[Rfam]
c-di-AMP riboswitch aptamer (ydaO/yuaA leader): a 163-nucleotide RNA sequence from Paenibacillus psychroresistens. The match comes from Rfam's covariance-model search (57 bits).

RNA sequence: CCUUAAGAGAUGCCGAAACCUUCUUCCCGAAGGUGCGGGGGAUGAUUUAUUACGGAAUGCAGACUUUUGCCUUCCGCUAGGGGUGAAUCUUUACUUAUAAGAUGGGCUGUAUCCUCAACCCAAACCCGACAACUAACCUCGUAGGACAAAACCUACUGGUAAC
Dot-bracket structure: ..........((((...(((((.......)))))((((((.....(................................).(((.....(((.......)))..(((............)))...))).........)))))).)).))...............
Numbered sequence: 001c002c003u004u005a006a007g008a009g010a011u012g013c014c015g016a017a018a019c020c021u022u023c024u025u026c027c028c029g030a031a032g033g034u035g036c037g038g039g040g041g042a043u044g045a046u047u048u049a050u051u052a053c054g055g056a057a058u059g060c061a062g063a064c065u066u067u068u069g070c071c072u073u074c075c076g077c078u079a080g081g082g083g084u085g086a087a088u089c090u091u092u093a094c095u096u097a098u099a100a101g102a103u104g105g106g107c108u109g110u111a112u113c114c115u116c117a118a119c120c121c122a123a124a125c126c127c128g129a130c131a132a133c134u135a136a137c138c139u140c141g142u143a144g145g146a147c148a149a150a151a152c153c154u155a156c157u158g159g160u161a162a163c
Stems, first nucleotide, its partner, number of pairs: 011148002013145002018034005035142006046079001081127003089101003104121003